This 78-nucleotide sequence from Schistosoma haematobium belongs to the Rfam family "mir-3492 microRNA precursor family".
[Rfam]
RNA sequence: ACCUUUCUGAAUCCGUAUAGAAAUUUCGUCAGACACCAAUCCACUAGGGCUGAUCAGACUUCCAAGAUAAGUGAAGUU
Numbered sequence: 001a002c003c004u005u006u007c008u009g010a011a012u013c014c015g016u017a018u019a020g021a022a023a024u025u026u027c028g029u030c031a032g033a034c035a036c037c038a039a040u041c042c043a044c045u046a047g048g049g050c051u052g053a054u055c056a057g058a059c060u061u062c063c064a065a066g067a068u069a070a071g072u073g074a075a076g077u078u
Base pairs, nucleotide, nucleotide: 003076004075005074006073008071011068012067013066016064020061021060024058025057026056028054029053030052

The organism belongs to Schistosoma, within Eukaryota. Its family is annotated with miRNA-mediated post-transcriptional gene silencing and RISC complex in the Gene Ontology.